[Rfam]
Source information:
The record is an 80-nucleotide RNA sequence from Anopheles gambiae, which matches "mir-9/mir-79 microRNA precursor family" in Rfam. Pairs were carried over by alignment from the consensus structure, which was predicted with RNAalifold. Rfam links the family to the GO terms RISC complex and miRNA-mediated post-transcriptional gene silencing. Rfam 15.1 lists 5,647 matches to the family in 934 species. NCBI's taxonomy places the organism under Eukaryota, Insecta, Anophelinae, Pyretophorus, gambiae species complex.
Nucleotides: 080
Base pairs, nucleotide, nucleotide: 001080002079003078004077005076008073010071011070012069013068014067015066016065018063020061021060022059023058024057025056026055028053029052030051031050032049
Number, partner (000 for none) and nucleotide at each position: 001080u002079u003078u004077g005076u006000c007000c008073g009000c010071g011070c012069u013068u014067u015066g016065g017000c018063g019000c020061u021060u022059u023058a024057g025056c026055u027000g028053u029052a030051u031050g032049a033000u034000a035000g036000a037000a038000u039000u040000u041000g042000a043000a044000c045000u046000a047000u048000u049032u050031c051030a052029u053028a054000a055026a056025g057024c058023u059022a060021g061020a062000u063018u064000a065016c066015c067014a068013a069012a070011g071010c072000a073008u074000a075000g076005a077004c078003g079002a080001a